Rfam assigns this 138-nucleotide RNA from Gynuella sunshinyii to the family "Molybdenum/Tungsten riboswitch aptamer (Moco RNA motif)". The family has 160 seed sequences and 1,248 matches in Rfam 15.1.

[Rfam]
RNA sequence: UUUAAAGAAACACUCCGAGCCGCAGCGUUCUAACCGCCAGACGUAUGAAACUUCGGCCUCAGCAUUGUGCUGACAGGGUAAACGGGGAAACCGGUUUGCCUCCCUUGUAUUUUGGAAAGGUGUGUCUAUGUUACAGGA
Numbered sequence: 001u002u003u004a005a006a007g008a009a010a011c012a013c014u015c016c017g018a019g020c021c022g023c024a025g026c027g028u029u030c031u032a033a034c035c036g037c038c039a040g041a042c043g044u045a046u047g048a049a050a051c052u053u054c055g056g057c058c059u060c061a062g063c064a065u066u067g068u069g070c071u072g073a074c075a076g077g078g079u080a081a082a083c084g085g086g087g088a089a090a091c092c093g094g095u096u097u098g099c100c101u102c103c104c105u106u107g108u109a110u111u112u113u114g115g116a117a118a119g120g121u122g123u124g125u126c127u128a129u130g131u132u133a134c135a136g137g138a
Base pairs, nucleotide, nucleotide: 004131006129011124012123013122015120016119019057020056021055022054024052025051028049029048030047035043036042059073060072061071062070063069076101077100078099079098080097081096082095083094085092086091102115103114
A search with the family's covariance model found it, with a score of 82 bits. The base pairs follow the family's consensus structure, which is taken from published work.